[Rfam]
RNA sequence: UUGCUUAGCUUCCUAGCCUGAAAAGGCUAAUGGCUGGUGGCUAAAUGGCCACCGGCCU
Numbered sequence: 001u002u003g004c005u006u007a008g009c010u011u012c013c014u015a016g017c018c019u020g021a022a023a024a025g026g027c028u029a030a031u032g033g034c035u036g037g038u039g040g041c042u043a044a045a046u047g048g049c050c051a052c053c054g055g056c057c058u
Base pairs, nucleotide, nucleotide: 014029015028016027017026018025032057033056034055035054036053037052038051039050040049041048
The family of this 58-nucleotide RNA from Grimontia hollisae is "Pseudomonas sRNA P26". Rfam classes the family as a non-coding RNA gene. This small RNA (sRNA) was computationally identified in the genome of the opportunistic pathogen Pseudomonas aeruginosa and its expression verified by northern blot analysis. P26 is conserved across many Gammaproteobacteria species and appears to be consistently located between the DNA directed RNA polymerase (beta subunit) and 50S ribosomal protein L7/L12 genes. The base pairs follow the family's consensus structure, which was predicted with RNAalifold. NCBI's taxonomy places the organism under Bacteria, Pseudomonadati, Gammaproteobacteria, Vibrionales, Grimontia hollisae. A reference for the family is Livny et al. (2006), "Identification of 17 Pseudomonas aeruginosa sRNAs and prediction of sRNA-encoding genes in 10 diverse pathogens using the bioinformatic tool sRNAPredict2", Nucleic Acids Res.